RNA sequence: UGGUGCAUAGCAAUAUGUUCCAGUCCGCCAGAAGUCCGCCGAAGCCAUAGUACCCUUCACCGGCAGGGGAAAGGC
Numbered sequence: 001u002g003g004u005g006c007a008u009a010g011c012a013a014u015a016u017g018u019u020c021c022a023g024u025c026c027g028c029c030a031g032a033a034g035u036c037c038g039c040c041g042a043a044g045c046c047a048u049a050g051u052a053c054c055c056u057u058c059a060c061c062g063g064c065a066g067g068g069g070a071a072a073g074g075c
Base pairs, nucleotide, nucleotide: 002021003020005018006017007016008015009014035042036041044075045074046073053068054067055066056065058063
Dot-bracket structure: .((.(((((....))))).)).............((....)).(((......((((.(....).))))....)))